[Rfam]
RNA sequence: ACGAGAUGGUGGCCCGUCGGCCGAGUGCGACCGAUAAACUGUUCACGGUCGACCGGGCGCAGCCCUGUGUCGACCGCAAAUGAUCAGCCAGCAGCCGCUGCAACCACAGGGAG
Numbered sequence: 001a002c003g004a005g006a007u008g009g010u011g012g013c014c015c016g017u018c019g020g021c022c023g024a025g026u027g028c029g030a031c032c033g034a035u036a037a038a039c040u041g042u043u044c045a046c047g048g049u050c051g052a053c054c055g056g057g058c059g060c061a062g063c064c065c066u067g068u069g070u071c072g073a074c075c076g077c078a079a080a081u082g083a084u085c086a087g088c089c090a091g092c093a094g095c096c097g098c099u100g101c102a103a104c105c106a107c108a109g110g111g112a113g
Stems, first nucleotide, its partner, number of pairs: 047075006054067004089100004
This 113-nucleotide RNA sequence from Streptomyces dangxiongensis belongs to the Rfam family "Streptomyces-metK RNA". Taxonomically the source falls in Streptomyces (Bacteria, Bacillati, Kitasatosporales, Streptomycetaceae). By type it is a small RNA. The family's consensus secondary structure is taken from published work.